[Rfam]
RNA: DUF805b RNA
RNA sequence: GGGGCGGGUUCCGAAAAGCCUAUGAUAGAGUAGGAA
Numbered sequence: 001g002g003g004g005c006g007g008g009u010u011c012c013g014a015a016a017a018g019c020c021u022a023u024g025a026u027a028g029a030g031u032a033g034g035a036a
Base pairs, nucleotide, nucleotide: 002021003020004019005018010035011034012033